RNA sequence: GAUUUCCACUAGGGGAGCACAUGCUGAGAGGCUUUUAGCCGACCCUUAGAACCUGAUUACUGGAUAAUACCAGCGUAGGGAAGUGGCCAAAAAGACUG
Numbered sequence: 001g002a003u004u005u006c007c008a009c010u011a012g013g014g015g016a017g018c019a020c021a022u023g024c025u026g027a028g029a030g031g032c033u034u035u036u037a038g039c040c041g042a043c044c045c046u047u048a049g050a051a052c053c054u055g056a057u058u059a060c061u062g063g064a065u066a067a068u069a070c071c072a073g074c075g076u077a078g079g080g081a082a083g084u085g086g087c088c089a090a091a092a093a094g095a096c097u098g
Stems, first nucleotide, its partner, number of pairs: 006086005011046004017024002031039002052079004060073004

A member of the RNA family "TPP riboswitch aptamer (THI element)" from Sporomusaceae bacterium FL31, 98 nucleotides long. The match comes from Rfam's covariance-model search (68 bits).